[Rfam]
RNA sequence: GGCCGCCUGAGGGGAAGGUGCCCUCAGUACGAGAGGAACGGGGCGCCGCGGCCUCUAGUCUACCGGUUGCCCUACAGGGCAGAGCCGGGCAGCCACGCCGUAGGGGAUAACCGCUGAAGGCAUCUAAGCGGGAAGCCCUCCCCGAAAAGAGGCGGCCGCUCGGUGCCCGGUGGGGAAACCCGCCGGGUGCCGGGUGAGGGUCCCCGUAGAAGACGGGGUUGAUGGGGUGGGGGUGUAACCCCCGAGGGUUUUCCCGAGGGGGGAGCCCGCCACUCCCAAUGGCCCCAGGU
Numbered sequence: 001g002g003c004c005g006c007c008u009g010a011g012g013g014g015a016a017g018g019u020g021c022c023c024u025c026a027g028u029a030c031g032a033g034a035g036g037a038a039c040g041g042g043g044c045g046c047c048g049c050g051g052c053c054u055c056u057a058g059u060c061u062a063c064c065g066g067u068u069g070c071c072c073u074a075c076a077g078g079g080c081a082g083a084g085c086c087g088g089g090c091a092g093c094c095a096c097g098c099c100g101u102a103g104g105g106g107a108u109a110a111c112c113g114c115u116g117a118a119g120g121c122a123u124c125u126a127a128g129c130g131g132g133a134a135g136c137c138c139u140c141c142c143c144g145a146a147a148a149g150a151g152g153c154g155g156c157c158g159c160u161c162g163g164u165g166c167c168c169g170g171u172g173g174g175g176a177a178a179c180c181c182g183c184c185g186g187g188u189g190c191c192g193g194g195u196g197a198g199g200g201u202c203c204c205c206g207u208a209g210a211a212g213a214c215g216g217g218g219u220u221g222a223u224g225g226g227g228u229g230g231g232g233g234u235g236u237a238a239c240c241c242c243c244g245a246g247g248g249u250u251u252u253c254c255c256g257a258g259g260g261g262g263g264a265g266c267c268c269g270c271c272a273c274u275c276c277c278a279a280u281g282g283c284c285c286c287a288g289g290u
Base pairs, nucleotide, nucleotide: 001157002156003155004154005153006152007151008150011143012142013141014140017047018046019045020044021043022042023041024040048101049100050099051098052097056095058093063088064087065086066085067084068081069080070079071078072077104138105137106136111131112130113129114128115127198285199284200283201282202218203217204216205215206214223278224277225276226274227273228272229271230270231268232267233266236263239262240261241260242259243258246255
The record is a 290-nucleotide part of an RNA from Vulcanisaeta moutnovskia, which matches "Archaeal large subunit ribosomal RNA" in Rfam. It is one of the family's seed sequences. Rfam links the family to the GO terms structural constituent of ribosome and ribosome. The source organism's lineage runs through Archaea, Thermoproteati, Thermoproteota, Thermoprotei and Vulcanisaeta moutnovskia. The family's consensus secondary structure is taken from published work.